[Rfam]
Description:
A member of the RNA family "mir-322 microRNA precursor family" from Rattus norvegicus, 83 nucleotides long. Lineage of the source: Eukaryota > Vertebrata > Euteleostomi > Boreoeutheria > Rattus. It is one of the family's seed sequences.
RNA sequence: CGAAGGGAUGCAGCAGCAAUUCAUGUUUUGGAGUAUUGCCAAGGUUCAAAACAUGAAGCGCUGCAACACCCCUUCGUGGGAAA
Number, nucleotide and partner (000 for none) at each position: 001c076002g075003a074004a073005g072006g071007g070008a000009u068010g067011c000012a000013g064014c063015a062016g061017c060018a000019a000020u057021u056022c055023a054024u053025g052026u051027u050028u049029u048030g047031g046032a045033g000034u043035a000036u000037u000038g000039c000040c000041a000042a000043g034044g000045u032046u031047c030048a029049a028050a027051a026052c025053a024054u023055g022056a021057a020058g000059c000060g017061c016062u015063g014064c013065a000066a000067c010068a009069c000070c007071c006072c005073u004074u003075c002076g001077u000078g000079g000080g000081a000082a000083a000